[Rfam]
RNA sequence: CUGUGAAUAUUCUUGCUGAUCUAAGUUUGUAAUAUAAGGACAGGCUAAACGUUCACUACACAAAGACCAUGCACGUGUCCCCAGUCCUAAUUCUUUCACUAGGUCUGGUUUUUUAAAUGCUAGUAAUAUAU
Numbered sequence: 001c002u003g004u005g006a007a008u009a010u011u012c013u014u015g016c017u018g019a020u021c022u023a024a025g026u027u028u029g030u031a032a033u034a035u036a037a038g039g040a041c042a043g044g045c046u047a048a049a050c051g052u053u054c055a056c057u058a059c060a061c062a063a064a065g066a067c068c069a070u071g072c073a074c075g076u077g078u079c080c081c082c083a084g085u086c087c088u089a090a091u092u093c094u095u096u097c098a099c100u101a102g103g104u105c106u107g108g109u110u111u112u113u114u115a116a117a118u119g120c121u122a123g124u125a126a127u128a129u130a131u
Stems, first nucleotide, its partner, number of pairs: 003056003016043003020039003024035001026034001066124002069121001071120002081108004086103004
The record is a 131-nucleotide sequence from Sciurus carolinensis, which matches "Small nucleolar RNA SNORA72" in Rfam. The family has 29 seed sequences and 1,541 matches in Rfam 15.1. The organism belongs to Sciurus, within Eukaryota. A reference for the family is Ganot et al. (1997), "The family of box ACA small nucleolar RNAs is defined by an evolutionarily conserved secondary structure and ubiquitous sequence elements essential for RNA accumulation", Genes Dev. U72 is a member of the H/ACA class of snoRNAs. Its family is annotated with RNA processing and nucleolus in the Gene Ontology. It is annotated as an H/ACA-box small nucleolar RNA.